[Rfam]
RNA sequence: GUCUCCUGCUUCAACAAUGUUUGGACGGAAC
Numbered sequence: 001g002u003c004u005c006c007u008g009c010u011u012c013a014a015c016a017a018u019g020u021u022u023g024g025a026c027g028g029a030a031c
Stems, first nucleotide, its partner, number of pairs: 001031002004029003008026001010025005015019001
This 31-nucleotide sequence from Muntiacus reevesi belongs to the Rfam family "Iron response element I". For this family Rfam cites "Repression of Manduca sexta ferritin synthesis by IRP1/IRE interaction" (Zhang et al., Insect Mol Biol, 2001). NCBI's taxonomy places the organism under Eukaryota, Opisthokonta, Laurasiatheria, Artiodactyla, Muntiacus. The match comes from Rfam's covariance-model search (37 bits).